[Rfam]
RNA sequence: UGCUCGCAGACGCCCGCGUCUGCGCGUGCUUGUGGAUGAUGUUGCUGGUCUCCCAGGUGGAAGCGGCUUUGG
Numbered sequence: 001u002g003c004u005c006g007c008a009g010a011c012g013c014c015c016g017c018g019u020c021u022g023c024g025c026g027u028g029c030u031u032g033u034g035g036a037u038g039a040u041g042u043u044g045c046u047g048g049u050c051u052c053c054c055a056g057g058u059g060g061a062a063g064c065g066g067c068u069u070u071g072g
Stems, first nucleotide, its partner, number of pairs: 006023007024067002027065005034058001037055002
Hepatitis C virus stem-loop SL2531 and SL2549AU: a 72-nucleotide sequence from Orthohepacivirus hominis. It is annotated as a cis-regulatory element. The source organism's lineage runs through Viruses, Riboviria, Kitrinoviricota, Hepaciviridae and Orthohepacivirus. For this family Rfam cites "The Coding Region of the HCV Genome Contains a Network of Regulatory RNA Structures" (Pirakitikulr et al., Mol Cell, 2016).